[Rfam]
RNA sequence: UAGUCCAUCGGGGCAAUGGAUACCUGCUAUUUUUUU
Number, nucleotide and partner (000 for none) at each position: 001u000002a000003g014004u013005c012006c011007a000008u000009c000010g000011g006012g005013g004014c003015a000016a000017u026018g025019g024020a000021u000022a000023c000024c019025u018026g017027c000028u000029a000030u000031u000032u000033u000034u000035u000036u000

Shown here is a 36-nucleotide RNA from Castor canadensis, a member of the family "XIST RNA A repeat". Rfam classes the family as a small RNA. The base pairs follow the family's consensus structure, which was predicted with CMfinder. NCBI's taxonomy places the organism under Eukaryota, Bilateria, Sarcopterygii, Eutheria, Castor. A reference for the family is Duszczyk et al. (2011), "The Xist RNA A-repeat comprises a novel AUCG tetraloop fold and a platform for multimerization", RNA.